[Rfam]
RNA sequence: AGCUGGUCUGAAGGUAGUGAAUUAUUUCAAUUGAUUGUUCACAGUCAGUUACAGACGGAACUUCUUUUUCCACUCUCACUGCUUUCUCACUACUGCAUCUGACUAGUCUUUU
Numbered sequence: 001a002g003c004u005g006g007u008c009u010g011a012a013g014g015u016a017g018u019g020a021a022u023u024a025u026u027u028c029a030a031u032u033g034a035u036u037g038u039u040c041a042c043a044g045u046c047a048g049u050u051a052c053a054g055a056c057g058g059a060a061c062u063u064c065u066u067u068u069u070c071c072a073c074u075c076u077c078a079c080u081g082c083u084u085u086c087u088c089a090c091u092a093c094u095g096c097a098u099c100u101g102a103c104u105a106g107u108c109u110u111u112u
Stems, first nucleotide, its partner, number of pairs: 002107007010100001014096002016091005043074003048070001
Shown here is a 112-nucleotide RNA from Homo sapiens, a member of the family "Y RNA".
Rfam describes the family as follows. Y RNAs are components of the Ro ribonucleoprotein particle (Ro RNP), in association with Ro60 and La proteins.
The literature on the family includes a 2000 paper in Nucleic Acids Res by Teunissen et al., "Conserved features of Y RNAs: a comparison of experimentally derived secondary structures".
The base pairs follow the family's consensus structure, which is taken from published work.